Rfam assigns this 171-nucleotide RNA sequence from Aegilops tauschii to the family "MIR2118 microRNA precursor family". The source organism's lineage runs through Eukaryota, Euphyllophyta, Spermatophyta, Magnoliopsida and Aegilops tauschii.
[Rfam]
RNA sequence: GCUAGGAAGAGGAAGAAAGAGAGGGCAUAAGAGCAGUGGGAAUGAGAACAUAGAGGAAAGCCUAAAUUGCUGGUUCUUCACCUCUUGUCUUGAGGUGGCAAUUCAGUUGGGCAUUUCCCGAUGCCUCUCAUUCCUAUCGUUCUUAGGCGCUCCUUCCUCUUCCUUAUUGUU
Numbered sequence: 001g002c003u004a005g006g007a008a009g010a011g012g013a014a015g016a017a018a019g020a021g022a023g024g025g026c027a028u029a030a031g032a033g034c035a036g037u038g039g040g041a042a043u044g045a046g047a048a049c050a051u052a053g054a055g056g057a058a059a060g061c062c063u064a065a066a067u068u069g070c071u072g073g074u075u076c077u078u079c080a081c082c083u084c085u086u087g088u089c090u091u092g093a094g095g096u097g098g099c100a101a102u103u104c105a106g107u108u109g110g111g112c113a114u115u116u117c118c119c120g121a122u123g124c125c126u127c128u129c130a131u132u133c134c135u136a137u138c139g140u141u142c143u144u145a146g147g148c149g150c151u152c153c154u155u156c157c158u159c160u161u162c163c164u165u166a167u168u169g170u171u
Stems, first nucleotide, its partner, number of pairs: 009162005015156003021152003026147001028145007037136011049123003053119001055118005060112004
Dot-bracket structure: ........(((((.(((...(((..(.(((((((..(((((((((((.(((.(.(((((((((.............................................)))).)))))).)))..)))))))))))..))))))).)..))).))).))))).........